Rfam assigns this 59-nucleotide RNA from Ornithinimicrobium tianjinense to the family "msiK RNA". By type it is a cis-regulatory element. Rfam 15.1 lists 1,374 matches to the family in 1,364 species.

RNA sequence: CGCGGGGUUCCUUUACGACGGAUCGUCCGGCACGUACCUGCCGGUGAAGGAGAACCACC
Numbered sequence: 001c002g003c004g005g006g007g008u009u010c011c012u013u014u015a016c017g018a019c020g021g022a023u024c025g026u027c028c029g030g031c032a033c034g035u036a037c038c039u040g041c042c043g044g045u046g047a048a049g050g051a052g053a054a055c056c057a058c059c
Stems, first nucleotide, its partner, number of pairs: 009051007027044006